This 97-nucleotide RNA sequence from Poindextervirus BL10 belongs to the Rfam family "skipping-rope RNA". Rfam classes the family as a small RNA. The family's consensus secondary structure is taken from published work. NCBI's taxonomy places the organism under Viruses, Heunggongvirae, Uroviricota, Jeanschmidtviridae, Poindextervirus BL10. The match comes from Rfam's covariance-model search (49 bits).
RNA sequence: UCGUGGUGAGGUGAGAACGCCCUCCUCAUGCACCGCUUCGGCGGUAAAGUAGGCUCCGGCCGAAGAGAUGCGGGAACAGGGGACCCCGCCACCACGA
Number, nucleotide and partner (000 for none) at each position: 001u097002c096003g095004u094005g093006g092007u091008g090009a000010g000011g029012u028013g027014a026015g025016a000017a000018c000019g000020c082021c081022c080023u079024c000025c015026u014027c013028a012029u011030g000031c065032a045033c044034c043035g042036c000037u000038u000039c000040g000041g000042c035043g034044g033045u032046a000047a000048a000049g000050u000051a000052g000053g000054c000055u000056c000057c000058g000059g000060c000061c000062g000063a000064a000065g031066a000067g000068a000069u000070g089071c088072g087073g086074g085075a000076a000077c000078a000079g023080g022081g021082g020083a000084c000085c074086c073087c072088g071089c070090c008091a007092c006093c005094a004095c003096g002097a001